[Rfam]
RNA sequence: AAACUUACCUGGCUGGGAGAGCGGCACGAUCAAGAAGGUGUCGCCUCCAUGGUGAGGCCCUCCCAUUGCACUUUGGGGACGGGUUGACCUGUGUGGCAGCUCCGAGUUGGGGUUGGCCAACAGCUAAAUUUUUGCGUUUGGAGUCUUCGGAUUCCAU
Numbered sequence: 001a002a003a004c005u006u007a008c009c010u011g012g013c014u015g016g017g018a019g020a021g022c023g024g025c026a027c028g029a030u031c032a033a034g035a036a037g038g039u040g041u042c043g044c045c046u047c048c049a050u051g052g053u054g055a056g057g058c059c060c061u062c063c064c065a066u067u068g069c070a071c072u073u074u075g076g077g078g079a080c081g082g083g084u085u086g087a088c089c090u091g092u093g094u095g096g097c098a099g100c101u102c103c104g105a106g107u108u109g110g111g112g113u114u115g116g117c118c119a120a121c122a123g124c125u126a127a128a129u130u131u132u133u134g135c136g137u138u139u140g141g142a143g144u145c146u147u148c149g150g151a152u153u154c155c156a157u
Stems, first nucleotide, its partner, number of pairs: 012124004016048004023042005049092004054088001056085003060081001061079002063076002094119003097115001098113001101110002139156007
Overview: U1 spliceosomal RNA: a 157-nucleotide RNA sequence from Bursaphelenchus okinawaensis. The organism belongs to Bursaphelenchus, within Eukaryota. A reference for the family is Oubridge et al. (1994), "Crystal structure at 1.92 A resolution of the RNA-binding domain of the U1A spliceosomal protein complexed with an RNA hairpin", Nature.